[Rfam]
RNA sequence: UCAUCACCACCAUUUCCCUGAAUAAUCUUUCGGGCGCGUGGUGCUGUUCGGAAGAUAACUUCCGAGUAAGUGCUGGUAAUCAAACAUCAAUCUCUCGGAAGGCAACUUUCGAGAGAUUUUUUUA
Number, nucleotide and partner (000 for none) at each position: 001u000002c000003a000004u000005c000006a000007c000008c046009a045010c000011c040012a039013u038014u000015u000016c000017c034018c033019u032020g031021a030022a000023u000024a000025a000026u000027c000028u000029u000030u021031c020032g019033g018034g017035c000036g000037c000038g013039u012040g011041g000042u000043g000044c000045u009046g008047u066048u065049c064050g063051g062052a061053a060054g059055a000056u000057a000058a000059c054060u053061u052062c051063c050064g049065a048066g047067u000068a000069a000070g000071u000072g000073c000074u000075g000076g000077u000078a000079a000080u000081c000082a000083a000084a000085c000086a121087u000088c000089a118090a117091u116092c115093u114094c113095u112096c111097g110098g109099a108100a107101g106102g000103c000104a000105a000106c101107u100108u099109u098110c097111g096112a095113g094114a093115g092116a091117u090118u089119u000120u000121u086122u000123u000124a000